[Rfam]
RNA sequence: ACCGGUCCUCGGUAGUGGUUCCCAGGCCAACCAUCCUGGGCACUUCGAUCGAAGACCGGC
Dot-bracket structure: .((((((.(((((...(((.((((((........)))))).)))...))))).)))))).